[Rfam]
RNA sequence: AUUCAUCCAGUAGGAAUUAAACCUACAAAUUCGCCAAUUAUGAGUUGGGCACUUUAACCAUUCAGCCAUGGAUGC
Numbered sequence: 001a002u003u004c005a006u007c008c009a010g011u012a013g014g015a016a017u018u019a020a021a022c023c024u025a026c027a028a029a030u031u032c033g034c035c036a037a038u039u040a041u042g043a044g045u046u047g048g049g050c051a052c053u054u055u056a057a058c059c060a061u062u063c064a065g066c067c068a069u070g071g072a073u074g075c
Base pairs, nucleotide, nucleotide: 004074005073006072007071008070010026011025012024013023014022040069041068042067044066045065046064047063048062049061

A member of the RNA family "Plastid-ycf2 5UTR RNA" from Gossypium laxum, 75 nucleotides long. Taxonomically the source falls in Gossypium (Eukaryota, Spermatophyta, Mesangiospermae, malvids). The family's consensus secondary structure was predicted with LocARNA. Rfam's curators write: Plastid ycf2 is a non-coding RNA (ncRNA) recognised in plastids. It was found in the prime untranslated region (5UTR) of ycf2 genes, it presents a tRNA-like motif which suggests it can be involved in mRNA maturation, particularly involved in defining the precise 5' end of the transcript.